The family of this 195-nucleotide sequence from Bradyrhizobium sp. STM 3843 is "Bradyrhizobiaceae sRNA BjrC174".
Taxonomically the source falls in Bradyrhizobium (Bacteria, Pseudomonadati, Pseudomonadota, Alphaproteobacteria).
It is annotated as a small RNA.
[Rfam]
RNA sequence: GUCACGGGAUCGUUAGCAGAGUCAUAAUGACGCCCCACUUCCGCCCAGCGACCGCCCCUCCCAUCUAGCAUAAAGUUCGUGUGCGUUGGCCCGGUCCUUUCGGUUCCGGAUUCCUCAGCCCCCAGCCCCCCGGGGUCGUCAGGAUCGGGCCUAUUCGCACGCAAAGACAAAGGGCCAACGUAAGUUGGUCCUUUU
Numbered sequence: 001g002u003c004a005c006g007g008g009a010u011c012g013u014u015a016g017c018a019g020a021g022u023c024a025u026a027a028u029g030a031c032g033c034c035c036c037a038c039u040u041c042c043g044c045c046c047a048g049c050g051a052c053c054g055c056c057c058c059u060c061c062c063a064u065c066u067a068g069c070a071u072a073a074a075g076u077u078c079g080u081g082u083g084c085g086u087u088g089g090c091c092c093g094g095u096c097c098u099u100u101c102g103g104u105u106c107c108g109g110a111u112u113c114c115u116c117a118g119c120c121c122c123c124a125g126c127c128c129c130c131c132g133g134g135g136u137c138g139u140c141a142g143g144a145u146c147g148g149g150c151c152u153a154u155u156c157g158c159a160c161g162c163a164a165a166g167a168c169a170a171a172g173g174g175c176c177a178a179c180g181u182a183a184g185u186u187g188g189u190c191c192u193u194u195u
Stems, first nucleotide, its partner, number of pairs: 036166001039051001042048001080161006088151011101138009118126002172191008